Nucleotides: 135
Base pairs, nucleotide, nucleotide: 002056003055004054005053006052007051009048010047012045013044014043015042016040017039018038019037020036021035022034023033068128069127070126071125074124075123076122077121088117089116090115091113092112095105096104
Number, partner (000 for none) and nucleotide at each position: 001000u002056g003055c004054c005053u006052u007051u008000g009048u010047g011000u012045u013044g014043c015042c016040c017039a018038u019037u020036c021035a022034u023033u024000u025000c026000c027000a028000u029000c030000c031000a032000g033023a034022a035021u036020g037019a038018a039017u040016g041000u042015g043014g044013u045012g046000u047010c048009a049000a050000a051007a052006a053005a054004g055003g056002c057000a058000a059000a060000c061000a062000g063000a064000a065000a066000u067000a068128c069127u070126u071125g072000c073000u074124c075123a076122g077121a078000c079000a080000g081000c082000u083000u084000c085000u086000u087000a088117a089116g090115g091113a092112g093000c094000u095105g096104g097000u098000u099000a100000u101000u102000u103000a104096c105095c106000u107000u108000u109000c110000u111000c112092c113091u114000c115090c116089c117088u118000g119000u120000u121077u122076c123075u124074g125071c126070a127069a128068g129000a130000a131000c132000a133000a134000a135000a
About this RNA:
Rfam assigns this 135-nucleotide RNA from Strix occidentalis to the family "Small nucleolar RNA SNORA13". From the family's description: ACA13 is a member of the H/ACA class of snoRNA that guide the sites of modification of uridines to pseudouridines. Rfam links the family to the GO terms RNA processing and nucleolus. Taxonomically the source falls in Strix occidentalis (Eukaryota, Craniata, Gnathostomata, Aves). It is annotated as an H/ACA-box small nucleolar RNA. The base pairs follow the family's consensus structure, which was predicted with CMfinder.